RNA: Molybdenum/Tungsten riboswitch aptamer (Moco RNA motif)
Organism: Flavonifractor sp. An306
RNA sequence: UAAUUGGAUAUGCUCCGAGCGGUACCGCCUAAGGGCUCUGCCUAUGGCGCUCCGCCAGGGUCCGGCUGGAAACGGCCCGGCCUUCCGUCUUUGAAAAGGAGCCUCAUGGAAAAAGGG
Numbered sequence: 001u002a003a004u005u006g007g008a009u010a011u012g013c014u015c016c017g018a019g020c021g022g023u024a025c026c027g028c029c030u031a032a033g034g035g036c037u038c039u040g041c042c043u044a045u046g047g048c049g050c051u052c053c054g055c056c057a058g059g060g061u062c063c064g065g066c067u068g069g070a071a072a073c074g075g076c077c078c079g080g081c082c083u084u085c086c087g088u089c090u091u092u093g094a095a096a097a098g099g100a101g102c103c104u105c106a107u108g109g110a111a112a113a114a115g116g117g
Stems, first nucleotide, its partner, number of pairs: 004110001012102005019055004026049004033043004058083005064077005084094002